[Rfam]
This 131-nucleotide RNA sequence from Striga asiatica belongs to the Rfam family "MIR403 microRNA precursor family".
RNA sequence: GCAUAUUUCAUGUUUGUGCGUGGAUCUAACGUUUUUACUUGGAGAUCUUACACACCUCUGUUUAUGUAGUGCUCAAUCUUGUUCUCUAUGUUUCAAAUCGUUAGAUUCACGCACAAACUCGUGAUAUGCCU
Numbered sequence: 001g002c003a004u005a006u007u008u009c010a011u012g013u014u015u016g017u018g019c020g021u022g023g024a025u026c027u028a029a030c031g032u033u034u035u036u037a038c039u040u041g042g043a044g045a046u047c048u049u050a051c052a053c054a055c056c057u058c059u060g061u062u063u064a065u066g067u068a069g070u071g072c073u074c075a076a077u078c079u080u081g082u083u084c085u086c087u088a089u090g091u092u093u094c095a096a097a098u099c100g101u102u103a104g105a106u107u108c109a110c111g112c113a114c115a116a117a118c119u120c121g122u123g124a125u126a127u128g129c130c131u
Stems, first nucleotide, its partner, number of pairs: 001129003005125003012118015028102003
Notes:
The family's consensus secondary structure was predicted with WAR. Gene Ontology terms of the family: miRNA-mediated post-transcriptional gene silencing and RISC complex. The source organism's lineage runs through Eukaryota, Viridiplantae, Tracheophyta, Buchnereae and Striga. The literature on the family includes a 2009 paper in BMC Genomics by Mica et al., "High throughput approaches reveal splicing of primary microRNA transcripts and tissue specific expression of mature microRNAs in Vitis vinifera".